[Rfam]
RNA sequence: GUUCUCAUUGCAGCAAUCCAACAAAUUUCCCUUGAAAAUUACCUUGAGAACUG
Numbered sequence: 001g002u003u004c005u006c007a008u009u010g011c012a013g014c015a016a017u018c019c020a021a022c023a024a025a026u027u028u029c030c031c032u033u034g035a036a037a038a039u040u041a042c043c044u045u046g047a048g049a050a051c052u053g
Stems, first nucleotide, its partner, number of pairs: 001051006
Dot-bracket structure: ((((((.......................................))))))..